The family of this 531-nucleotide part of an RNA from a Candidatus Aenigmatarchaeota archaeon is "Archaeal large subunit ribosomal RNA".
RNA sequence: CCUCUCUAAAUGUGUCUAAGCACAGCCUGGCUGGAGGUAGAGCAUGGGGUAUAGAUACUGAUUGGGUAACCAAGGGGAGAAAAGCGCUUGGCAACUUGGAAAUAUUUGUUCAGGUUGCCCGUUCUCAUUCUCCAGUUAUCCUGUCAAACUCGGAAUCCAUGUUCGCCGUAGAAGGCCGGAGUGGGGGCGCUGGGGUAAGCUCAGUGUCCGAAAGGGCAAGAACCCAGACUAAAGUUAAGGUCCCUAAAUGUUGUCUAAGUGAAGAAAAGUGUCAUCAACCAUAUACAAUAGGGAGGUUGGCUCAGAAGCAGCCACCCUUUAAACGAGCGAAGGCUUGGAAUUAUCUGAUUAAGCCUUCAUUCGAAAGAAAGAGUGUGUAAUAACUCACCUAUCUAGGUUGUUGGCCUUGAAAAUGGACGGGACUAAGGCAACUACCGAUACUUUAGAUCACGAAAGUGAUAGAGUAGGGAGGUGUUCUGCUGGGGCAGAAGUUCUUCCGUAAGGGGGAAUGGACCCUGCAGAAAUAAGAAU
Numbered sequence: 001c002c003u004c005u006c007u008a009a010a011u012g013u014g015u016c017u018a019a020g021c022a023c024a025g026c027c028u029g030g031c032u033g034g035a036g037g038u039a040g041a042g043c044a045u046g047g048g049g050u051a052u053a054g055a056u057a058c059u060g061a062u063u064g065g066g067u068a069a070c071c072a073a074g075g076g077g078a079g080a081a082a083a084g085c086g087c088u089u090g091g092c093a094a095c096u097u098g099g100a101a102a103u104a105u106u107u108g109u110u111c112a113g114g115u116u117g118c119c120c121g122u123u124c125u126c127a128u129u130c131u132c133c134a135g136u137u138a139u140c141c142u143g144u145c146a147a148a149c150u151c152g153g154a155a156u157c158c159a160u161g162u163u164c165g166c167c168g169u170a171g172a173a174g175g176c177c178g179g180a181g182u183g184g185g186g187g188c189g190c191u192g193g194g195g196u197a198a199g200c201u202c203a204g205u206g207u208c209c210g211a212a213a214g215g216g217c218a219a220g221a222a223c224c225c226a227g228a229c230u231a232a233a234g235u236u237a238a239g240g241u242c243c244c245u246a247a248a249u250g251u252u253g254u255c256u257a258a259g260u261g262a263a264g265a266a267a268a269g270u271g272u273c274a275u276c277a278a279c280c281a282u283a284u285a286c287a288a289u290a291g292g293g294a295g296g297u298u299g300g301c302u303c304a305g306a307a308g309c310a311g312c313c314a315c316c317c318u319u320u321a322a323a324c325g326a327g328c329g330a331a332g333g334c335u336u337g338g339a340a341u342u343a344u345c346u347g348a349u350u351a352a353g354c355c356u357u358c359a360u361u362c363g364a365a366a367g368a369a370a371g372a373g374u375g376u377g378u379a380a381u382a383a384c385u386c387a388c389c390u391a392u393c394u395a396g397g398u399u400g401u402u403g404g405c406c407u408u409g410a411a412a413a414u415g416g417a418c419g420g421g422a423c424u425a426a427g428g429c430a431a432c433u434a435c436c437g438a439u440a441c442u443u444u445a446g447a448u449c450a451c452g453a454a455a456g457u458g459a460u461a462g463a464g465u466a467g468g469g470a471g472g473u474g475u476u477c478u479g480c481u482g483g484g485g486c487a488g489a490a491g492u493u494c495u496u497c498c499g500u501a502a503g504g505g506g507g508a509a510u511g512g513a514c515c516c517u518g519c520a521g522a523a524a525u526a527a528g529a530a531u
Stems, first nucleotide, its partner, number of pairs: 001472006011024005026181001027179006036167003040164008052152001053150002060145003064141006074133005185209009214225003229446007239436003248433001250432006267408003271405004276400005288392005294318003299313003319370001371386001375384002448461001449458003473526001475523006482516003491510008